[Rfam]
RNA sequence: AGUGGAAGCUGCAAACCCAACCAUGUAGGCAAAGGAGAGAUGUCUUUUGUCUGCAGAAGGCAGCAGUCCUACAUGAAUAUGGAGGUCUCUGUCUGACUUAGGGCAGCUGGCUAAGUCUGAUCGUUCACCUCCAUACAAG
Numbered sequence: 001a002g003u004g005g006a007a008g009c010u011g012c013a014a015a016c017c018c019a020a021c022c023a024u025g026u027a028g029g030c031a032a033a034g035g036a037g038a039g040a041u042g043u044c045u046u047u048u049g050u051c052u053g054c055a056g057a058a059g060g061c062a063g064c065a066g067u068c069c070u071a072c073a074u075g076a077a078u079a080u081g082g083a084g085g086u087c088u089c090u091g092u093c094u095g096a097c098u099u100a101g102g103g104c105a106g107c108u109g110g111c112u113a114a115g116u117c118u119g120a121u122c123g124u125u126c127a128c129c130u131c132c133a134u135a136c137a138a139g
Stems, first nucleotide, its partner, number of pairs: 004069003008064005024055007035046003081132005089123001091121003095117007
RNA: Small Cajal body specific RNA 3
Organism: Cricetulus griseus